[Rfam]
RNA sequence: GGGGAUGGGAGGGCUCCGGUGAGCCCCCCGGUCUUCAAAACCGGUGACGGGUCGCGUGGCGAGCCGUGGUGGGUUCGACUCCCAUUCAUCCCC
Number, nucleotide and partner (000 for none) at each position: 001g093002g092003g091004g090005a089006u088007g087008g086009g085010a000011g026012g025013g024014c023015u022016c021017c000018g000019g000020u000021g016022a015023g014024c013025c012026c011027c000028c044029c043030g042031g041032u040033c000034u000035u000036c000037a000038a000039a000040a032041c031042c030043g029044g028045u000046g000047a067048c066049g065050g064051g000052u000053c000054g000055c000056g000057u000058g000059g000060c000061g000062a000063g000064c050065c049066g048067u047068g000069g000070u084071g083072g082073g081074u000075u000076c000077g000078a000079c000080u000081c073082c072083c071084a070085u009086u008087c007088a006089u005090c004091c003092c002093c001

Rfam assigns this 93-nucleotide RNA sequence from Thermanaerothrix daxensis to the family "Selenocysteine transfer RNA". The source organism's lineage runs through Bacteria, Chloroflexota, Anaerolineae, Anaerolineales and Thermanaerothrix.